[Rfam]
RNA sequence: AUGAUGAUAACGGGAGAGAUCGCGGAUCGCGGAUCGGCGGCGCCGAAGGAGUAAACCUGACAACGGUGAAUCUCUCAGGCAAAAGGACCUUUAUCGGACG
Numbered sequence: 001a002u003g004a005u006g007a008u009a010a011c012g013g014g015a016g017a018g019a020u021c022g023c024g025g026a027u028c029g030c031g032g033a034u035c036g037g038c039g040g041c042g043c044c045g046a047a048g049g050a051g052u053a054a055a056c057c058u059g060a061c062a063a064c065g066g067u068g069a070a071u072c073u074c075u076c077a078g079g080c081a082a083a084a085g086g087a088c089c090u091u092u093a094u095c096g097g098a099c100g
Stems, first nucleotide, its partner, number of pairs: 006095005012089002020040004042080003045076002049074003055067002
Glycine riboswitch aptamer: a 100-nucleotide RNA sequence from Paenibacillus sp. UNC496MF. The literature on the family includes a 2004 paper in Science by Mandal et al., "A glycine-dependent riboswitch that uses cooperative binding to control gene expression". Rfam describes the family as follows. This family represents the bacterial glycine riboswitch. Pairs were carried over by alignment from the consensus structure. NCBI's taxonomy places the organism under Bacteria, Bacillota, Bacilli, Paenibacillaceae, Paenibacillus.